[Rfam]
RNA sequence: UUUUUAGCAUAAGUAUAUCCCAUGCAAUAUUUGGGAUAUACUCAUUCUAAGA
Dot-bracket structure: .....((.((.(.(((.(((((........).)))).))).).)).))....
RNA: mir-1302 microRNA precursor family